[Rfam]
RNA: MIR821 microRNA precursor family
RNA sequence: GACUUCAACUGAAAAAGUCAUCAAUAACAAAGUUGUAUAACUCAUCAAGAUCUAUAACUUUUAUUUUGAUCAUUUCUUCAUCCGAUAAAGUGAUACUAACAUUGUUCACAAAAUUGACGUAUCUCUUAUCUGGUUUUAGAAACUAUAACACAUAUAUGUAAAAUUUGCGAACAAUGUUACUAACACUUUGUCGGAUGAAGAUAUGACAAAAAUAAAAGUUUUAGAUCUUGAUGAGUUAUAUAAUUUUGUUGUUGAUGACUUUUUCAAUUGAAAAU
Numbered sequence: 001g002a003c004u005u006c007a008a009c010u011g012a013a014a015a016a017g018u019c020a021u022c023a024a025u026a027a028c029a030a031a032g033u034u035g036u037a038u039a040a041c042u043c044a045u046c047a048a049g050a051u052c053u054a055u056a057a058c059u060u061u062u063a064u065u066u067u068g069a070u071c072a073u074u075u076c077u078u079c080a081u082c083c084g085a086u087a088a089a090g091u092g093a094u095a096c097u098a099a100c101a102u103u104g105u106u107c108a109c110a111a112a113a114u115u116g117a118c119g120u121a122u123c124u125c126u127u128a129u130c131u132g133g134u135u136u137u138a139g140a141a142a143c144u145a146u147a148a149c150a151c152a153u154a155u156a157u158g159u160a161a162a163a164u165u166u167g168c169g170a171a172c173a174a175u176g177u178u179a180c181u182a183a184c185a186c187u188u189u190g191u192c193g194g195a196u197g198a199a200g201a202u203a204u205g206a207c208a209a210a211a212a213u214a215a216a217a218g219u220u221u222u223a224g225a226u227c228u229u230g231a232u233g234a235g236u237u238a239u240a241u242a243a244u245u246u247u248g249u250u251g252u253u254g255a256u257g258a259c260u261u262u263u264u265c266a267a268u269u270g271a272a273a274a275u
Base pairs, nucleotide, nucleotide: 014262015261016260017259018258019257020256021255023253024252026250027249030246031245032244033243034242035241036240037239038238039237040236041235042234044232045231046230047229048228049227050226051225052224053223056220057219058218059217060216061215062214063213064212065211066210067209070206071205072204073203075201077199078198079197080196081195083193084192085191086190087189088188089187090186091185092184094182095181097179098178099177101175102174103173104172105171106170107169109167110166111165112164114162115161117159118158119157120156121155122154131145132144133143134142135141136140